[Rfam]
RNA sequence: UAGUUUUGUCCUAAGUCAAACUUCUCUAACUUUGACCAUGUUUUUCGAAAAAUACAUUAACAUCUACAAGUACAAAUAAAUCUGCUAUCAAGACAUUUCUUGGAGAAUCUAAUGAAACAGAUUUGAUGUUGAAACUUUGGUGCGUUUUCUAUAAACUUGGUCAAAGUUAGAGAAGUUUGACUGACAAAGCUAA
Numbered sequence: 001u002a003g004u005u006u007u008g009u010c011c012u013a014a015g016u017c018a019a020a021c022u023u024c025u026c027u028a029a030c031u032u033u034g035a036c037c038a039u040g041u042u043u044u045u046c047g048a049a050a051a052a053u054a055c056a057u058u059a060a061c062a063u064c065u066a067c068a069a070g071u072a073c074a075a076a077u078a079a080a081u082c083u084g085c086u087a088u089c090a091a092g093a094c095a096u097u098u099c100u101u102g103g104a105g106a107a108u109c110u111a112a113u114g115a116a117a118c119a120g121a122u123u124u125g126a127u128g129u130u131g132a133a134a135c136u137u138u139g140g141u142g143c144g145u146u147u148u149c150u151a152u153a154a155a156c157u158u159g160g161u162c163a164a165a166g167u168u169a170g171a172g173a174a175g176u177u178u179g180a181c182u183g184a185c186a187a188a189g190c191u192a193a
Stems, first nucleotide, its partner, number of pairs: 005188005014182013031165005045151001047149005055142003059138002063134001065132001067131002073125005

Record summary
This 193-nucleotide RNA sequence from Miscanthus lutarioriparius belongs to the Rfam family "MIR1435 microRNA precursor family". It scores 100 bits against the family's covariance model.